[Rfam]
RNA sequence: AUACCCUUGACUCACUCUGAAAUCUACCAUAUUGCGCUGUGGUUUAUUUCUAUUUUUGUUCAAGGAAGAGGAAUGGAAGCCCAAUACUCACCGCGACAUACUAGCUAUCGAGCUCUUGUGGAUGUAGUGGUCCAUCAUCAUGGCUACAU
Number, nucleotide and partner (000 for none) at each position: 001a000002u000003a000004c000005c000006c000007u063008u062009g061010a000011c000012u000013c000014a000015c000016u000017c000018u000019g050020a049021a048022a047023u046024c000025u000026a043027c042028c041029a000030u000031a000032u000033u000034g000035c000036g000037c000038u000039g000040u000041g028042g027043u026044u000045u000046a023047u022048u021049u020050c019051u000052a000053u000054u000055u000056u000057u000058g000059u000060u000061c009062a008063a007064g000065g000066a000067a000068g000069a000070g000071g000072a000073a000074u000075g000076g000077a000078a145079g144080c143081c142082c000083a000084a000085u000086a000087c000088u000089c000090a000091c130092c129093g128094c127095g000096a125097c124098a123099u000100a000101c121102u120103a000104g000105c000106u000107a000108u000109c000110g000111a000112g000113c000114u000115c000116u000117u000118g000119u000120g102121g101122a000123u098124g097125u096126a000127g094128u093129g092130g091131u000132c000133c000134a000135u000136c000137a000138u000139c000140a000141u000142g081143g080144c079145u078146a000147c000148a000149u000
RNA: Small nucleolar RNA snR80
Organism: Fusarium longipes